[Rfam]
RNA sequence: UCAGCCGGCCGGACGGCCGCUCCCGCUAUGGUCGAAAGGCCGCGGGGGAGGAAAGUCCGGGCUCCAAUGACAUACGGUGCCGGAUAACGUCCGGCGGGGGCGACCCCAGGGAAAGUGCCACAGAGAACGAACCGCUCCGUGCUUGCACGAAGUAAGGGUGAAAAGGUGCGGUAAGAGCGCACCGCGGAUCCGGCAACGGAAACGGCAAGGUAAACCCCACCGGGAGCAAAACCGAAUAGGGACAGCAUGGCAGUUAGUUCGUGCACGGGCGCAAGCCCACGAACGAUAACACUGCAGGGUGAUGUCAAACCCGCUGUCCGGGUAGGUUGCUAGAGGCCGCAUGCAAAUGCGGUCCCAGAAGAAUGGCCGUCACGUAUCGUUGCGCAAGCCGCGAUGCCUUACAGAACCCGGCUUACAGGCCGGCUGAUAUC
Numbered sequence: 001u002c003a004g005c006c007g008g009c010c011g012g013a014c015g016g017c018c019g020c021u022c023c024c025g026c027u028a029u030g031g032u033c034g035a036a037a038g039g040c041c042g043c044g045g046g047g048g049a050g051g052a053a054a055g056u057c058c059g060g061g062c063u064c065c066a067a068u069g070a071c072a073u074a075c076g077g078u079g080c081c082g083g084a085u086a087a088c089g090u091c092c093g094g095c096g097g098g099g100g101c102g103a104c105c106c107c108a109g110g111g112a113a114a115g116u117g118c119c120a121c122a123g124a125g126a127a128c129g130a131a132c133c134g135c136u137c138c139g140u141g142c143u144u145g146c147a148c149g150a151a152g153u154a155a156g157g158g159u160g161a162a163a164a165g166g167u168g169c170g171g172u173a174a175g176a177g178c179g180c181a182c183c184g185c186g187g188a189u190c191c192g193g194c195a196a197c198g199g200a201a202a203c204g205g206c207a208a209g210g211u212a213a214a215c216c217c218c219a220c221c222g223g224g225a226g227c228a229a230a231a232c233c234g235a236a237u238a239g240g241g242a243c244a245g246c247a248u249g250g251c252a253g254u255u256a257g258u259u260c261g262u263g264c265a266c267g268g269g270c271g272c273a274a275g276c277c278c279a280c281g282a283a284c285g286a287u288a289a290c291a292c293u294g295c296a297g298g299g300u301g302a303u304g305u306c307a308a309a310c311c312c313g314c315u316g317u318c319c320g321g322g323u324a325g326g327u328u329g330c331u332a333g334a335g336g337c338c339g340c341a342u343g344c345a346a347a348u349g350c351g352g353u354c355c356c357a358g359a360a361g362a363a364u365g366g367c368c369g370u371c372a373c374g375u376a377u378c379g380u381u382g383c384g385c386a387a388g389c390c391g392c393g394a395u396g397c398c399u400u401a402c403a404g405a406a407c408c409c410g411g412c413u414u415a416c417a418g419g420c421c422g423g424c425u426g427a428u429a430u431c
Stems, first nucleotide, its partner, number of pairs: 001427010011416001012371007020048007053414003057411005062226004075222005080094005095109001096107004110217002115215002117211003132157002134153003138149004165183006184206001185204002189200004230328004240319006297312004335354008